RNA sequence: ACAACAUUCGGACCGUCGGUCUGCCGAGUAAUAUCAUCCGCUCGGUGGAAGAUCUUCCCUUUUUCGU
Numbered sequence: 001a002c003a004a005c006a007u008u009c010g011g012a013c014c015g016u017c018g019g020u021c022u023g024c025c026g027a028g029u030a031a032u033a034u035c036a037u038c039c040g041c042u043c044g045g046u047g048g049a050a051g052a053u054c055u056u057c058c059c060u061u062u063u064u065c066g067u
Stems, first nucleotide, its partner, number of pairs: 004064001006062001010058003015053003020049010
RNA: mir-2774 microRNA precursor family
Organism: Bombyx mori